[Rfam]
RNA: Small nucleolar RNA Z278
RNA sequence: GCCUGUGACGAUAUGUCCAUGUUUAUGAGGUGUAGCUAGCUCCAAGUCCCUGUUUCACAGGGGGAACCUACUGGGGCUGUUACAUUCAAAUGAUAUGAAUGGACUCCUCCGAGGC
Numbered sequence: 001g002c003c004u005g006u007g008a009c010g011a012u013a014u015g016u017c018c019a020u021g022u023u024u025a026u027g028a029g030g031u032g033u034a035g036c037u038a039g040c041u042c043c044a045a046g047u048c049c050c051u052g053u054u055u056c057a058c059a060g061g062g063g064g065a066a067c068c069u070a071c072u073g074g075g076g077c078u079g080u081u082a083c084a085u086u087c088a089a090a091u092g093a094u095a096u097g098a099a100u101g102g103a104c105u106c107c108u109c110c111g112a113g114g115c
Base pairs, nucleotide, nucleotide: 001115002114003113048062049061050060051059052058